Shown here is a 132-nucleotide RNA from Vitis rotundifolia, a member of the family "MIR845_2 microRNA precursor family". The source organism's lineage runs through Eukaryota, Spermatophyta, Pentapetalae, Vitales and Vitis. On this family, see Jaillon et al., Nature 2007: "The grapevine genome sequence suggests ancestral hexaploidization in major angiosperm phyla".
[Rfam]
RNA sequence: AGAACGCACAUUAAUUAUCCCUAUGGCCAUGGGAUAAACAAAAACCUUAUAAAAACAAGUUAGCACACCCUAAAAUGGUUUUUUGCAUGAUUACUAACUUAUGCAUAUGAUACCACUUGAAAGGAAAAACCC
Dot-bracket structure: ..........((((.(.....((((..((((((..............(....((.((..((((......))))..)).))......)..........))))))..)))).....).))))............

Notes
Gene Ontology terms of the family: miRNA-mediated post-transcriptional gene silencing and RISC complex. It scores 108 bits against the family's covariance model. Pairs were carried over by alignment from the consensus structure, which was predicted with WAR.